[Rfam]
RNA: ALIL pseudoknot
Organism: Sphingomonas sp. IC081
RNA sequence: GGCGUAUUUUGCGCUGGCGGAGCUCGACCGCCGCGAGAGGUGAUGAUGUCGUUCAUCGACGCGCAUCGCGAGGACUUGGGUAUCGAGCCGAUCUGCCGCGAACUGGCGAUCGCCC
Numbered sequence: 001g002g003c004g005u006a007u008u009u010u011g012c013g014c015u016g017g018c019g020g021a022g023c024u025c026g027a028c029c030g031c032c033g034c035g036a037g038a039g040g041u042g043a044u045g046a047u048g049u050c051g052u053u054c055a056u057c058g059a060c061g062c063g064c065a066u067c068g069c070g071a072g073g074a075c076u077u078g079g080g081u082a083u084c085g086a087g088c089c090g091a092u093c094u095g096c097c098g099c100g101a102a103c104u105g106g107c108g109a110u111c112g113c114c115c
Stems, first nucleotide, its partner, number of pairs: 016032005078115003089112002092109002096105001098103001
Dot-bracket structure: ...............(((((.......))))).............................................(((........((.((..(.(....).)..)).)))))